[Rfam]
RNA sequence: UGGCGCCCGACGUGGGGCCUGGAUACUGGGGGACAACGUGAGGGACACGACGAAAGAAGGGGUGCGCACCCGCUCAAAUAGUUCGGAGACGUCGCAGUAGCCUGCUGUGACCGAGCCGACAGGUAAGUUGGUCGUUCAAUCAUGGGGCAAGAAUUAAGUCAGCAUCAGAAAUAUAUGAUACAGUUAAGAGAAGCAUUACAGGCAAGAGGAGUAAAGGUUACAACUGAAGAUUUAUUUCAUUUUUUUGAUUUUGUGAAAGACAUCUGCCCAU
Numbered sequence: 001u002g003g004c005g006c007c008c009g010a011c012g013u014g015g016g017g018c019c020u021g022g023a024u025a026c027u028g029g030g031g032g033a034c035a036a037c038g039u040g041a042g043g044g045a046c047a048c049g050a051c052g053a054a055a056g057a058a059g060g061g062g063u064g065c066g067c068a069c070c071c072g073c074u075c076a077a078a079u080a081g082u083u084c085g086g087a088g089a090c091g092u093c094g095c096a097g098u099a100g101c102c103u104g105c106u107g108u109g110a111c112c113g114a115g116c117c118g119a120c121a122g123g124u125a126a127g128u129u130g131g132u133c134g135u136u137c138a139a140u141c142a143u144g145g146g147g148c149a150a151g152a153a154u155u156a157a158g159u160c161a162g163c164a165u166c167a168g169a170a171a172u173a174u175a176u177g178a179u180a181c182a183g184u185u186a187a188g189a190g191a192a193g194c195a196u197u198a199c200a201g202g203c204a205a206g207a208g209g210a211g212u213a214a215a216g217g218u219u220a221c222a223a224c225u226g227a228a229g230a231u232u233u234a235u236u237u238c239a240u241u242u243u244u245u246u247g248a249u250u251u252u253g254u255g256a257a258a259g260a261c262a263u264c265u266g267c268c269c270a271u
Stems, first nucleotide, its partner, number of pairs: 006031003012026003037049003083123002085120001090113002093109005133147001135146004155198003158194002206246006215233005256271001259268001261266001
RNA: Mason-Pfizer monkey virus packaging signal
Organism: Nannospalax galili